About this RNA: Molybdenum/Tungsten riboswitch aptamer (Moco RNA motif): a 126-nucleotide RNA from Propionigenium maris. The base pairs follow the family's consensus structure, which is taken from published work. A search with the family's covariance model found it, with a score of 62 bits.

[Rfam]
RNA sequence: GAGAAAGAAUAUCUCCGAGUGAAAAUUCCUAAGGAUAAAACUUACGGUCUAGGGAAUGACACCUAUGGGUAGCUGAGGAAACCCAACUGCCUCCCGUGCUUGGAAAGGAGCUUAUUUACUAAGGAG
Numbered sequence: 001g002a003g004a005a006a007g008a009a010u011a012u013c014u015c016c017g018a019g020u021g022a023a024a025a026u027u028c029c030u031a032a033g034g035a036u037a038a039a040a041c042u043u044a045c046g047g048u049c050u051a052g053g054g055a056a057u058g059a060c061a062c063c064u065a066u067g068g069g070u071a072g073c074u075g076a077g078g079a080a081a082c083c084c085a086a087c088u089g090c091c092u093c094c095c096g097u098g099c100u101u102g103g104a105a106a107g108g109a110g111c112u113u114a115u116u117u118a119c120u121a122a123g124g125a126g
Base pairs, nucleotide, nucleotide: 003120006117011112013110014109015108016107019062020061021060025057026056027055028054029053033050034049035048036047067092068091069090070089071088072087074085075084077082093103094102